[Rfam]
RNA: Proteobacterial sRNA sX8
RNA sequence: CUUCGCUGCUCACGGCGGCGAAGAAUGUGAUUGGGAAACAAGGAUUUAGCGCCCUAGUGCCUGUCUCGUUUCCGGCUCCACA
Numbered sequence: 001c002u003u004c005g006c007u008g009c010u011c012a013c014g015g016c017g018g019c020g021a022a023g024a025a026u027g028u029g030a031u032u033g034g035g036a037a038a039c040a041a042g043g044a045u046u047u048a049g050c051g052c053c054c055u056a057g058u059g060c061c062u063g064u065c066u067c068g069u070u071u072c073c074g075g076c077u078c079c080a081c082a
Base pairs, nucleotide, nucleotide: 001023002022003021004020005019006018007017008016009015029078030077032075034073035072036071037070038069039068043065044064045063050059051058052057